[Rfam]
RNA: Small nucleolar RNA SNORA77
RNA sequence: GCAGACUCACUCUGUACCGAACUGCCGCCUUCAGUUCAGGUGCUUUUUCUGUCUGCAAGAGUAAUCACUCACAGGCGUGAUGAGUUGCCUUCUUUCUUGUGGAAGGCUGUUACAAUUGCUAUUGGGACAUUGCU
Numbered sequence: 001g002c003a004g005a006c007u008c009a010c011u012c013u014g015u016a017c018c019g020a021a022c023u024g025c026c027g028c029c030u031u032c033a034g035u036u037c038a039g040g041u042g043c044u045u046u047u048u049c050u051g052u053c054u055g056c057a058a059g060a061g062u063a064a065u066c067a068c069u070c071a072c073a074g075g076c077g078u079g080a081u082g083a084g085u086u087g088c089c090u091u092c093u094u095u096c097u098u099g100u101g102g103a104a105g106g107c108u109g110u111u112a113c114a115a116u117u118g119c120u121a122u123u124g125g126g127a128c129a130u131u132g133c134u
Base pairs, nucleotide, nucleotide: 001056002055003054004053005052006051014043015042016041017040018039019037020036022034023033024032069125070124071123073120074119077116078115081112082111085109087107088106089105090104091103